[Rfam]
The record is an 81-nucleotide RNA sequence from Penaeus vannamei, which matches "mir-130 microRNA precursor family" in Rfam. The source organism's lineage runs through Eukaryota, Mandibulata, Eumalacostraca, Penaeidae and Penaeus. Pairs were carried over by alignment from the consensus structure, which was predicted with PFOLD.

RNA sequence: AUUAUGCCGAAGGCCUUUUCACUAUUGCUUCGUCAGGGCAAAGCAAUAGCGAAGCAAUAGUGAAAAGGCCUUCGGCAUAUU
Numbered sequence: 001a002u003u004a005u006g007c008c009g010a011a012g013g014c015c016u017u018u019u020c021a022c023u024a025u026u027g028c029u030u031c032g033u034c035a036g037g038g039c040a041a042a043g044c045a046a047u048a049g050c051g052a053a054g055c056a057a058u059a060g061u062g063a064a065a066a067g068g069c070c071u072u073c074g075g076c077a078u079a080u081u
Base pairs, nucleotide, nucleotide: 005077006076007075008074009073010072012070013069014068015067016066017065018064019063022060024058025057026056027055028054029053030052031051
A reference for the family is Houbaviy et al. (2003), "Embryonic stem cell-specific MicroRNAs", Dev Cell.